[Rfam]
RNA: Betaproteobacteria toxic small RNA
RNA sequence: UGUCUCCUCCACCCUCCUCCAAAGGUGGAUUCAGCCCAGGGCCUCACGGCCUUGGGCUUUUUUAU
Number, nucleotide and partner (000 for none) at each position: 001u000002g000003u000004c000005u000006c000007c000008u029009c028010c027011a026012c025013c024014c000015u000016c000017c000018u000019c000020c000021a000022a000023a000024g013025g012026u011027g010028g009029a008030u000031u000032c000033a058034g057035c056036c055037c054038a053039g052040g051041g000042c000043c000044u000045c000046a000047c000048g000049g000050c000051c040052u039053u038054g037055g036056g035057c034058u033059u000060u000061u000062u000063u000064a000065u000